[Rfam]
RNA sequence: CUCUUAUUCAGAGUGGUGGAGAUACAUAGGAUCGAUGAAGCCACGGCAACCCCAACCCUUAGUCGGAAGGUGCCAUCCUGAGCGAGUUUCUCGAACAAUAAGAG
Numbered sequence: 001c002u003c004u005u006a007u008u009c010a011g012a013g014u015g016g017u018g019g020a021g022a023u024a025c026a027u028a029g030g031a032u033c034g035a036u037g038a039a040g041c042c043a044c045g046g047c048a049a050c051c052c053c054a055a056c057c058c059u060u061a062g063u064c065g066g067a068a069g070g071u072g073c074c075a076u077c078c079u080g081a082g083c084g085a086g087u088u089u090c091u092c093g094a095a096c097a098a099u100a101a102g103a104g
Stems, first nucleotide, its partner, number of pairs: 001104008013044005021033003027082001030079001045074004050070002052066002055063001083093004

The family of this 104-nucleotide RNA sequence from Lachnospiraceae bacterium XBD2001 is "SAM riboswitch aptamer (S box leader)". The SAM riboswitch is found upstream of a number of genes which code for proteins involved in methionine or cysteine biosynthesis in Gram-positive bacteria. The SAM riboswitch acts at the level of transcription termination control. The predicted structure consists of a complex stem-loop region followed by a single stem loop terminator region. The family's consensus secondary structure is taken from published work. The source organism's lineage runs through Bacteria, Bacillota, Clostridia, Lachnospirales and Lachnospiraceae.